[Rfam]
Background
Small nucleolar RNA SNORD18: a 78-nucleotide RNA sequence from Capsella rubella. Rfam 15.1 lists 2,622 matches to the family in 960 species. It is annotated as a C/D-box small nucleolar RNA. The base pairs follow the family's consensus structure, which was predicted with PFOLD.
RNA sequence: GAGAUAUGAUGAUCAACAAAUUGGUCCGUGUUUCUGAUUAACCGUGACCGAAAUUUUUCUUAACCAAACUCUGAUCUC
Numbered sequence: 001g002a003g004a005u006a007u008g009a010u011g012a013u014c015a016a017c018a019a020a021u022u023g024g025u026c027c028g029u030g031u032u033u034c035u036g037a038u039u040a041a042c043c044g045u046g047a048c049c050g051a052a053a054u055u056u057u058u059c060u061u062a063a064c065c066a067a068a069c070u071c072u073g074a075u076c077u078c
Base pairs, nucleotide, nucleotide: 001078002077003076004075
Rfam links the family to the GO terms RNA processing and nucleolus. For this family Rfam cites "Two different snoRNAs are encoded in introns of amphibian and human L1 ribosomal protein genes" (Prislei et al., Nucleic Acids Res, 1993).